[Rfam]
RNA sequence: CAGAUAUGGGGAGAUAGUGAUCCGGGCCGAGCUUGAAUCGGUCACCGCGUGGCGGCCCGGGGAGUCAGUGGUGAGACCGCCCCCGACCCG
Numbered sequence: 001c002a003g004a005u006a007u008g009g010g011g012a013g014a015u016a017g018u019g020a021u022c023c024g025g026g027c028c029g030a031g032c033u034u035g036a037a038u039c040g041g042u043c044a045c046c047g048c049g050u051g052g053c054g055g056c057c058c059g060g061g062g063a064g065u066c067a068g069u070g071g072u073g074a075g076a077c078c079g080c081c082c083c084c085g086a087c088c089c090g
Stems, first nucleotide, its partner, number of pairs: 003089001007085005013066003022060008040078002042074005

The record is a 90-nucleotide RNA from Actinoplanes octamycinicus, which matches "c-di-GMP-II-GAG riboswitch aptamer" in Rfam. NCBI's taxonomy places the organism under Bacteria, Bacillati, Actinomycetota, Micromonosporales, Actinoplanes. Clan: c-di-GMP_II riboswitch clan. A reference for the family is Weinberg et al. (2017), "Bioinformatic analysis of riboswitch structures uncovers variant classes with altered ligand specificity", Proc Natl Acad Sci U S A. Rfam links the family to the GO terms regulation of gene expression and cyclic-di-GMP binding.